[Rfam]
Rfam assigns this 263-nucleotide RNA from Catonella morbi to the family "Bacterial large signal recognition particle RNA". The family's RNA type in Rfam is non-coding RNA gene.
RNA sequence: CCAUGCAGCCGGGGAGAUAGCGGUGCCCUGUACCUACAAUCCGCUCUAGUAGGGGUGAUAUUUUGUCUGAGGGACAGCCUUUGCAAAGCCGCCCUAAGUGGAGGAUGUUGAAGUCUUGGUCUUACGCAAUGAGAGCUUGUGAACCGUGUCAGGUUGGGAACAAAGCAGCACUAAGCAAAAUCUUUCAUGUGCCGUAAGGGUGCCUGGGCCGAGUUUUUCAUUUAGGUACCGUUUGUGAAGCUGCAUCGAAGCAAAAUGCAUGG
Numbered sequence: 001c002c003a004u005g006c007a008g009c010c011g012g013g014g015a016g017a018u019a020g021c022g023g024u025g026c027c028c029u030g031u032a033c034c035u036a037c038a039a040u041c042c043g044c045u046c047u048a049g050u051a052g053g054g055g056u057g058a059u060a061u062u063u064u065g066u067c068u069g070a071g072g073g074a075c076a077g078c079c080u081u082u083g084c085a086a087a088g089c090c091g092c093c094c095u096a097a098g099u100g101g102a103g104g105a106u107g108u109u110g111a112a113g114u115c116u117u118g119g120u121c122u123u124a125c126g127c128a129a130u131g132a133g134a135g136c137u138u139g140u141g142a143a144c145c146g147u148g149u150c151a152g153g154u155u156g157g158g159a160a161c162a163a164a165g166c167a168g169c170a171c172u173a174a175g176c177a178a179a180a181u182c183u184u185u186c187a188u189g190u191g192c193c194g195u196a197a198g199g200g201u202g203c204c205u206g207g208g209c210c211g212a213g214u215u216u217u218u219c220a221u222u223u224a225g226g227u228a229c230c231g232u233u234u235g236u237g238a239a240g241c242u243g244c245a246u247c248g249a250a251g252c253a254a255a256a257u258g259c260a261u262g263g
Stems, first nucleotide, its partner, number of pairs: 001263006008056003011029004016024001018022001033053005062255005068249001071247002075243001079240009091229001094225006102218002104215003113209004118204003121198006127189002130187005137178004146171004154163003
Dot-bracket structure: ((((((.(((((((.(.(...).).))))...(((((...........)))))))).....(((((.(..((..(...(((((((((...(..((((((..(((((......((((.(((((((((((.(((((..((((.....((((....(((....)))....))))...))))....)))))))...))))))...))).))))...))).)).))))))...)..)))))))))..)..)).).)))))..))))))
It scores 176 bits against the family's covariance model. The signal recognition particle (SRP) is a universally conserved ribonucleoprotein involved in the co-translational targeting of proteins to membranes. The family's consensus secondary structure is taken from published work. NCBI's taxonomy places the organism under Bacteria, Bacillota, Clostridia, Lachnospirales, Catonella morbi.